[Rfam]
RNA: 6S / SsrS RNA
RNA sequence: GCGGGGCUGCCGGGCUCGUCAGGCAACUCAACCCCUGGGCCGAUAAGCACUUCCAAAGGGAGCUGGCUCUGACGUGAUCCUGGUCAUGUUACCUGGCGCCCACCUGCACUUGCAGGUCCGGGAGGGCUGAAAAGACCAACGGCCAUGGUGGCUCCGCA
Numbered sequence: 001g002c003g004g005g006g007c008u009g010c011c012g013g014g015c016u017c018g019u020c021a022g023g024c025a026a027c028u029c030a031a032c033c034c035c036u037g038g039g040c041c042g043a044u045a046a047g048c049a050c051u052u053c054c055a056a057a058g059g060g061a062g063c064u065g066g067c068u069c070u071g072a073c074g075u076g077a078u079c080c081u082g083g084u085c086a087u088g089u090u091a092c093c094u095g096g097c098g099c100c101c102a103c104c105u106g107c108a109c110u111u112g113c114a115g116g117u118c119c120g121g122g123a124g125g126g127c128u129g130a131a132a133a134g135a136c137c138a139a140c141g142g143c144c145a146u147g148g149u150g151g152c153u154c155c156g157c158a
Stems, first nucleotide, its partner, number of pairs: 002156010013144003017141003032126003035122001036120006058101003062097005071090007